[Rfam]
A member of the RNA family "Listeria sRNA rli49" from Echeneis naucrates, 137 nucleotides long.
Taxonomically the source falls in Echeneis (Eukaryota, Vertebrata, Gnathostomata, Carangiformes).
The family's consensus secondary structure was predicted with RNAalifold.

RNA sequence: CAAAUUGGUAAUCAAAAUCUAAUUGGUAUUGAUACAGAUAUACAAUGUAGUCUCAGAUUAGGCUUCUGCUGUGCCAAGUAUACCAACUCAAAAUACCUUAUGUACAAAAUGAGCAGUUGUUCAUCUUGGUUAUUGCA
Numbered sequence: 001c002a003a004a005u006u007g008g009u010a011a012u013c014a015a016a017a018u019c020u021a022a023u024u025g026g027u028a029u030u031g032a033u034a035c036a037g038a039u040a041u042a043c044a045a046u047g048u049a050g051u052c053u054c055a056g057a058u059u060a061g062g063c064u065u066c067u068g069c070u071g072u073g074c075c076a077a078g079u080a081u082a083c084c085a086a087c088u089c090a091a092a093a094u095a096c097c098u099u100a101u102g103u104a105c106a107a108a109a110u111g112a113g114c115a116g117u118u119g120u121u122c123a124u125c126u127u128g129g130u131u132a133u134u135g136c137a
Base pairs, nucleotide, nucleotide: 005077006076007075008074009073010072011033012032013031014030015029019026035068036067037066038065045058046057113136114135115134116133117132120129121128
Dot-bracket structure: ....(((((((((((...(......)..))))).((((......((..........))......))))...))))))...................................(((((..((......))..))))).